Rfam assigns this 137-nucleotide sequence from Geotrypetes seraphini to the family "Small nucleolar RNA SNORD94". For this family Rfam cites "Identification of 13 novel human modification guide RNAs" (Vitali et al., Nucleic Acids Res, 2003). It is annotated as a C/D-box small nucleolar RNA. Rfam 15.1 lists 802 matches to the family in 622 species. The family's consensus secondary structure was predicted with RNAalifold. Rfam links the family to the GO terms nucleolus and RNA processing. The match comes from Rfam's covariance-model search (115 bits). NCBI's taxonomy places the organism under Eukaryota, Craniata, Teleostomi, Dipnotetrapodomorpha, Geotrypetes.

RNA sequence: UUGGCAAUGAUGAUUGGCGCAGGGGUACGGACCUCAGCUGGAUCAUGGGAGCUGAAUGUGGAUCCUUACUCAGGAUUGCUGACUUGUGGUUGGCACUCUGAGAGACUCACAUGAGAACUUGCCUGAAUCUGAGCCAA
Number, nucleotide and partner (000 for none) at each position: 001u137002u136003g135004g134005c133006a000007a000008u000009g000010a000011u000012g000013a000014u000015u000016g000017g000018c000019g000020c000021a000022g000023g000024g000025g000026u000027a000028c000029g000030g000031a000032c000033c000034u000035c000036a000037g000038c000039u000040g000041g000042a000043u000044c000045a000046u000047g000048g000049g000050a000051g000052c000053u000054g000055a000056a000057u000058g000059u000060g000061g000062a000063u000064c000065c000066u000067u000068a000069c000070u000071c000072a000073g000074g000075a000076u000077u000078g000079c000080u000081g000082a000083c000084u000085u000086g000087u000088g000089g000090u000091u000092g000093g000094c000095a000096c000097u000098c000099u000100g000101a000102g000103a000104g000105a000106c000107u000108c000109a000110c000111a000112u000113g000114a000115g000116a000117a000118c000119u000120u000121g000122c000123c000124u000125g000126a000127a000128u000129c000130u000131g000132a000133g005134c004135c003136a002137a001